[Rfam]
RNA sequence: AGGCCUGCAGAGAGAGGGGCAGGGUCUGAUCUGUAGUCUCAGUGGCAACUGUUGAUCAGCCAUUGCCUCUCUCUCUCUCUCCU
Numbered sequence: 001a002g003g004c005c006u007g008c009a010g011a012g013a014g015a016g017g018g019g020c021a022g023g024g025u026c027u028g029a030u031c032u033g034u035a036g037u038c039u040c041a042g043u044g045g046c047a048a049c050u051g052u053u054g055a056u057c058a059g060c061c062a063u064u065g066c067c068u069c070u071c072u073c074u075c076u077c078u079c080u081c082c083u
Stems, first nucleotide, its partner, number of pairs: 010075013024061001026059006034051004
Dot-bracket structure: .........(((((((((((((.(.((((((..((((..........))))..)))))).).)))))))))))))........
RNA: mir-574 microRNA precursor family